[Rfam]
The family of this 84-nucleotide sequence from Lentivirus humimdef1 is "HIV gag stem loop 3 (GSL3)".
RNA sequence: GGCCAGGAGGAAAGAAAAAAUAUGCACUAAAACAUUUGAUAUGGGCAAGCAGGGAGCUAGAACGAUUUAAACUUAAUCCUGGCC
Numbered sequence: 001g002g003c004c005a006g007g008a009g010g011a012a013a014g015a016a017a018a019a020a021u022a023u024g025c026a027c028u029a030a031a032a033c034a035u036u037u038g039a040u041a042u043g044g045g046c047a048a049g050c051a052g053g054g055a056g057c058u059a060g061a062a063c064g065a066u067u068u069a070a071a072c073u074u075a076a077u078c079c080u081g082g083c084c
Stems, first nucleotide, its partner, number of pairs: 001084008
Dot-bracket structure: ((((((((....................................................................))))))))
About this RNA
About the family: This family consists of several HIV gag stem loop 3 (GSL3) sequences. GSL3 is known to direct specific packaging of HIV-1 genomic RNA. Deletion of GSL3 leads to decreases in both viral RNA packaging and dimerisation. Rfam links the family to the GO term viral RNA genome packaging. It is one of the family's seed sequences. NCBI's taxonomy places the organism under Viruses, Riboviria, Artverviricota, Ortervirales, Lentivirus humimdef1.